[Rfam]
RNA sequence: UGUGAAUCCAGCUGGUUCAAGGCUGCAGGCCCACUUCCCUUGGCAGAUUUUUCCAUUUCAGGGAGUGGGGAAAGUGGCCCUAAACCAUCAAAAUGGAUUAUACAU
Numbered sequence: 001u002g003u004g005a006a007u008c009c010a011g012c013u014g015g016u017u018c019a020a021g022g023c024u025g026c027a028g029g030c031c032c033a034c035u036u037c038c039c040u041u042g043g044c045a046g047a048u049u050u051u052u053c054c055a056u057u058u059c060a061g062g063g064a065g066u067g068g069g070g071a072a073a074g075u076g077g078c079c080c081u082a083a084a085c086c087a088u089c090a091a092a093a094u095g096g097a098u099u100a101u102a103c104a105u
Stems, first nucleotide, its partner, number of pairs: 001104004005099006013087005021079006030069006037063004041055003
Dot-bracket structure: ((((((((((..(((((...((((((...((((((.(((((((.........)))....))))))))))....))))))...)))))......)))))).)))).

About this RNA: Shown here is a 105-nucleotide sequence from Mus musculus, a member of the family "mir-3552 microRNA precursor family". Rfam 15.1 lists 10 matches to the family in 10 species. Gene Ontology terms of the family: RISC complex and miRNA-mediated post-transcriptional gene silencing. Lineage of the source: Eukaryota > Deuterostomia > Amniota > Mammalia > Mus.